[Rfam]
RNA sequence: UGGCGCCCAACGGUGUGGCUCUGGAUACGGGGGAGUUCGCGAGGGAAGAGGCAUCUAAGUGUUCUGCAGAAGGAAAAAAAAAAGUGAAAGUCAGUUUGACAAAGAUCGCAGCGGGAGCCUGCUGCGCCAUUCUUAAAGGUACAGUAGCGCCUAAAGGGACAAGAAUUAAGUAAGCAUAAAGUUUUUGUUAAGCAAUUAAAAGAAGCUUUAAAGACACGGGGAGUAAAGGUUAAUAGUAAUGAUCUUUGUAAGUUUUUUGACCUUAUUAAGGAUACCUGUCCGU
Numbered sequence: 001u002g003g004c005g006c007c008c009a010a011c012g013g014u015g016u017g018g019c020u021c022u023g024g025a026u027a028c029g030g031g032g033g034a035g036u037u038c039g040c041g042a043g044g045g046a047a048g049a050g051g052c053a054u055c056u057a058a059g060u061g062u063u064c065u066g067c068a069g070a071a072g073g074a075a076a077a078a079a080a081a082a083a084g085u086g087a088a089a090g091u092c093a094g095u096u097u098g099a100c101a102a103a104g105a106u107c108g109c110a111g112c113g114g115g116a117g118c119c120u121g122c123u124g125c126g127c128c129a130u131u132c133u134u135a136a137a138g139g140u141a142c143a144g145u146a147g148c149g150c151c152u153a154a155a156g157g158g159a160c161a162a163g164a165a166u167u168a169a170g171u172a173a174g175c176a177u178a179a180a181g182u183u184u185u186u187g188u189u190a191a192g193c194a195a196u197u198a199a200a201a202g203a204a205g206c207u208u209u210a211a212a213g214a215c216a217c218g219g220g221g222a223g224u225a226a227a228g229g230u231u232a233a234u235a236g237u238a239a240u241g242a243u244c245u246u247u248g249u250a251a252g253u254u255u256u257u258u259g260a261c262c263u264u265a266u267u268a269a270g271g272a273u274a275c276c277u278g279u280c281c282g283u
Stems, first nucleotide, its partner, number of pairs: 006033003015028003038050001040048001095139003104132001105130002111125004145162001147160001150158003167210003170206002217259008227245006268283001270281004
Mason-Pfizer monkey virus packaging signal: a 283-nucleotide RNA from Sciurus vulgaris. The base pairs follow the family's consensus structure, which was predicted with PFOLD. Taxonomically the source falls in Sciurus (Eukaryota, Eumetazoa, Theria, Sciuridae). The family's RNA type in Rfam is cis-regulatory element. Rfam 15.1 lists 2,921 matches to the family in 53 species. Rfam's curators write: This family represents a group of sequences that are related to the Mason-Pfizer monkey virus (MPMV) packaging signal.